[Rfam]
RNA sequence: GCAAUAGUUCGGAUAUCUCAAGGGUGUCGGUACACUCCUGGUAAAGGGGGUGAUGCCGGUUGACGAUUUAUGAAUCAUUGACAUUUGCGGUUGCGUUUGCAAGUUUAAUCGUAGCGAUUUUGUCAUUUGACUCAAAAAAAUAAUCCACCCUUGAGUUAGCGGCUCAGGUGGAUUACUUGAUCUUCCUAUAUGGCCGACUCCUAUACAGGAACCGACUAUUGAAGGACCGUUUGGUGUUCCAGCACCAGCG
Numbered sequence: 001g002c003a004a005u006a007g008u009u010c011g012g013a014u015a016u017c018u019c020a021a022g023g024g025u026g027u028c029g030g031u032a033c034a035c036u037c038c039u040g041g042u043a044a045a046g047g048g049g050g051u052g053a054u055g056c057c058g059g060u061u062g063a064c065g066a067u068u069u070a071u072g073a074a075u076c077a078u079u080g081a082c083a084u085u086u087g088c089g090g091u092u093g094c095g096u097u098u099g100c101a102a103g104u105u106u107a108a109u110c111g112u113a114g115c116g117a118u119u120u121u122g123u124c125a126u127u128u129g130a131c132u133c134a135a136a137a138a139a140a141u142a143a144u145c146c147a148c149c150c151u152u153g154a155g156u157u158a159g160c161g162g163c164u165c166a167g168g169u170g171g172a173u174u175a176c177u178u179g180a181u182c183u184u185c186c187u188a189u190a191u192g193g194c195c196g197a198c199u200c201c202u203a204u205a206c207a208g209g210a211a212c213c214g215a216c217u218a219u220u221g222a223a224g225g226a227c228c229g230u231u232u233g234g235u236g237u238u239c240c241a242g243c244a245c246c247a248g249c250g
Stems, first nucleotide, its partner, number of pairs: 002221004007216003010196003014192002017155008026145001027143001033052007062124005075090002098116003166184002199210002228250003232247006
The record is a 250-nucleotide sequence from Metabacillus sediminilitoris, which matches "BsrG" in Rfam. Lineage of the source: Bacteria > Bacillati > Bacillota > Bacillaceae > Metabacillus. bsrE, bsrG and bsrH pair through intermolecular interactions with antisense sRNAs. They form type I toxin/antitoxin system that includes an mRNA encoding for a short, toxic peptide (bsrE, bsrG and bsrH) and an antitoxin that is comprised of an antisense RNA. bsrG encodes a 39-amino-acid toxin, and the 180 nucleotide antisense sRNA called SR4 acts as the antitoxin (they overlap by 123 nucleotides). SR4 interaction with the 3'UTR of bsrG RNA promotes bsrG degradation and inhibits its translation. BsrG interferes with cell envelope biosynthesis, causes membrane invaginations and delocalisation of the cell wall synthesis and initiates autolysis. bsrE RNA encodes 30 amino-acid toxin peptide. Its antitoxin gene, SR5 overlaps by 112 nucleotides at the 3' end of bsrE. SR5 also overlaps bsrG from nucleotide 163 to 52 (Rfam overlap check). The antitoxin SR5 promotes bsrE degradation but unlike SR4 it does not directly inhibits toxin mRNA translation. Gene Ontology terms of the family: toxin activity and autolysis. The literature on the family includes a 2008 paper in Gene by Saito et al., "Novel small RNA-encoding genes in the intergenic regions of Bacillus subtilis". It is annotated as a small RNA. The base pairs follow the family's consensus structure, which was predicted with WAR.